[Rfam]
RNA sequence: UAACUAAACGGGAGAAGUUGUAUCGCUUUAUGUUACAGUUUUAUCAUAAGCGUAUAGCUUUUCCCCUUAGUUA
Numbered sequence: 001u002a003a004c005u006a007a008a009c010g011g012g013a014g015a016a017g018u019u020g021u022a023u024c025g026c027u028u029u030a031u032g033u034u035a036c037a038g039u040u041u042u043a044u045c046a047u048a049a050g051c052g053u054a055u056a057g058c059u060u061u062u063c064c065c066c067u068u069a070g071u072u073a
Base pairs, nucleotide, nucleotide: 003071004070005069006068007067010065011064012063014061015060018057019056020055021054022053026050027049029048030047031046032045
This 73-nucleotide RNA from Galleria mellonella belongs to the Rfam family "mir-965 microRNA precursor family". The family has 16 seed sequences and 224 matches in Rfam 15.1.